The record is a 454-nucleotide RNA sequence from Phycisphaerae bacterium RAS1, which matches "Bacterial RNase P class A" in Rfam. The family's RNA type in Rfam is ribozyme.

RNA sequence: UGAGCGGGCCAGGCGACCGCUGCCGGCCGAAAGGCCGGUGGAGGAAAGUCCGAACUGGACAGGGCACGGCGAUGGCUAACAGCCACCGGGCGCAAGCCCAGGGAAAGUGCCACAGAAAAGACACCGCGACCACGGCCCAGCGUCGUGGGCGUAAGGGUGAAAAGGUGCGGUAAGAGCGCACCGCGCGGCCGGCGACGGUCGUGGCAGGGCAAACCCCGCCGCCAGCAAGCCCAAAUAAGGGGCGAUGAGCCGGCCCGGCUCGUUACCAGCCCCGGGUAGGGUGCUUGAGCCGGUCAGCAAUGGCCGGCCCAGAGGAAUGGCCGCCGCCCGACAGGCCUCGCCGACGCGCAGCAAGCUGGGCCUCGUGCCCUUAGGCCCUGCCGCCGGCUAAGCCGUUCGCAAAGAGCGGCGACGGACGUCGGGAACAGAAUUCGGCUUACGGCCCGCUCGCUGU
Numbered sequence: 001u002g003a004g005c006g007g008g009c010c011a012g013g014c015g016a017c018c019g020c021u022g023c024c025g026g027c028c029g030a031a032a033g034g035c036c037g038g039u040g041g042a043g044g045a046a047a048g049u050c051c052g053a054a055c056u057g058g059a060c061a062g063g064g065c066a067c068g069g070c071g072a073u074g075g076c077u078a079a080c081a082g083c084c085a086c087c088g089g090g091c092g093c094a095a096g097c098c099c100a101g102g103g104a105a106a107g108u109g110c111c112a113c114a115g116a117a118a119a120g121a122c123a124c125c126g127c128g129a130c131c132a133c134g135g136c137c138c139a140g141c142g143u144c145g146u147g148g149g150c151g152u153a154a155g156g157g158u159g160a161a162a163a164g165g166u167g168c169g170g171u172a173a174g175a176g177c178g179c180a181c182c183g184c185g186c187g188g189c190c191g192g193c194g195a196c197g198g199u200c201g202u203g204g205c206a207g208g209g210c211a212a213a214c215c216c217c218g219c220c221g222c223c224a225g226c227a228a229g230c231c232c233a234a235a236u237a238a239g240g241g242g243c244g245a246u247g248a249g250c251c252g253g254c255c256c257g258g259c260u261c262g263u264u265a266c267c268a269g270c271c272c273c274g275g276g277u278a279g280g281g282u283g284c285u286u287g288a289g290c291c292g293g294u295c296a297g298c299a300a301u302g303g304c305c306g307g308c309c310c311a312g313a314g315g316a317a318u319g320g321c322c323g324c325c326g327c328c329c330g331a332c333a334g335g336c337c338u339c340g341c342c343g344a345c346g347c348g349c350a351g352c353a354a355g356c357u358g359g360g361c362c363u364c365g366u367g368c369c370c371u372u373a374g375g376c377c378c379u380g381c382c383g384c385c386g387g388c389u390a391a392g393c394c395g396u397u398c399g400c401a402a403a404g405a406g407c408g409g410c411g412a413c414g415g416a417c418g419u420c421g422g423g424a425a426c427a428g429a430a431u432u433c434g435g436c437u438u439a440c441g442g443c444c445c446g447c448u449c450g451c452u453g454u
Base pairs, nucleotide, nucleotide: 001450002449003448004447005446006445007444008443009442010441012325013324014323015322017320018319020041021040022039023038024037025036026035027034028033046438047437048436050435051434052433053432054431055225056224057223058222062256063255064254065253067221068220069219070218071217073085074084075083076082087101088099089098090097091096102216103215107214108213109210110209111208124156125155126152127151128150130148131147132146133145134144135143136142164182165181166180167179168178169177183205184203185202186201187200188199189198190197191196229282230281231280232279239273240272241271242270243269247261248260249259250258251257289308290307291306292305293304294303295302296301